[Rfam]
RNA: PyrR binding site
RNA sequence: UAGUCCUUUAAAAACAGUCCAGAGAGGCUGAGAAGGAACGGAUAUGCAAAUGGUGCUGGCCAUGCACUUUUGUGAUGAAUGAAAAUUCGUGUACCCUCUUGCCUUUCAGGUAAGAGGGUUUUCUUAUG
Numbered sequence: 001u002a003g004u005c006c007u008u009u010a011a012a013a014a015c016a017g018u019c020c021a022g023a024g025a026g027g028c029u030g031a032g033a034a035g036g037a038a039c040g041g042a043u044a045u046g047c048a049a050a051u052g053g054u055g056c057u058g059g060c061c062a063u064g065c066a067c068u069u070u071u072g073u074g075a076u077g078a079a080u081g082a083a084a085a086u087u088c089g090u091g092u093a094c095c096c097u098c099u100u101g102c103c104u105u106u107c108a109g110g111u112a113a114g115a116g117g118g119u120u121u122u123c124u125u126a127u128g
Base pairs, nucleotide, nucleotide: 004037005036006035007034008033009032015030016029017028018027019026043077044076045075049071050070052068053067054066055065056064089123091121093119094118095117096116097115098114099113100112101111102110